The family of this 89-nucleotide RNA from Musa balbisiana is "Small nucleolar RNA U61". Taxonomically the source falls in Musa (Eukaryota, Streptophytina, Euphyllophyta, Magnoliopsida). Clan: SNORD61 clan. The base pairs follow the family's consensus structure, which was predicted with WAR. The literature on the family includes a 2003 paper in Nucleic Acids Res by Brown et al., "Plant snoRNA database". The family's RNA type in Rfam is C/D-box small nucleolar RNA.
RNA sequence: AGGCAAUGAAGAAAUCCAAUCCUUGUGGCCCGGAGAUGGAUCCAACCAUCGCUGACGGUGACACAAACCCUCUAAGAAGUUCUGAGCCU
Numbered sequence: 001a002g003g004c005a006a007u008g009a010a011g012a013a014a015u016c017c018a019a020u021c022c023u024u025g026u027g028g029c030c031c032g033g034a035g036a037u038g039g040a041u042c043c044a045a046c047c048a049u050c051g052c053u054g055a056c057g058g059u060g061a062c063a064c065a066a067a068c069c070c071u072c073u074a075a076g077a078a079g080u081u082c083u084g085a086g087c088c089u
Base pairs, nucleotide, nucleotide: 001089002088003087004086